RNA sequence: GCGAGGCUGCGUUUCGCGUCAGGAGCCAUAAUCCCCGGGGCCUUAUCGAUCCUUAAGGGAACUGUCCCUGGCCGGGUCCGUGGACCCGGUCACAUGGUGCCCACCUACUUUCGUAGGGAACUCCGGGAUCGAGCGCUUCAACGGUCAUCGUGGCUUCGCA
Numbered sequence: 001g002c003g004a005g006g007c008u009g010c011g012u013u014u015c016g017c018g019u020c021a022g023g024a025g026c027c028a029u030a031a032u033c034c035c036c037g038g039g040g041c042c043u044u045a046u047c048g049a050u051c052c053u054u055a056a057g058g059g060a061a062c063u064g065u066c067c068c069u070g071g072c073c074g075g076g077u078c079c080g081u082g083g084a085c086c087c088g089g090u091c092a093c094a095u096g097g098u099g100c101c102c103a104c105c106u107a108c109u110u111u112c113g114u115a116g117g118g119a120a121c122u123c124c125g126g127g128a129u130c131g132a133g134c135g136c137u138u139c140a141a142c143g144g145u146c147a148u149c150g151u152g153g154c155u156u157c158g159c160a
Stems, first nucleotide, its partner, number of pairs: 002158010012147001015144001017143003032128004037123003041118002057102003061098005070091007
This 160-nucleotide RNA sequence from Rhodopseudomonas palustris belongs to the Rfam family "6S / SsrS RNA". E. coli 6S RNA was the first non coding RNA to be sequenced, but its function was unknown until recently. It consists of 184 nucleotides that fold into an extended hairpin structure with a large single-stranded internal bulge. The 6S RNA specifically associates with RNA polymerase holoenzyme containing the sigma70 specificity factor. NCBI's taxonomy places the organism under Bacteria, Pseudomonadati, Alphaproteobacteria, Nitrobacteraceae, Rhodopseudomonas palustris.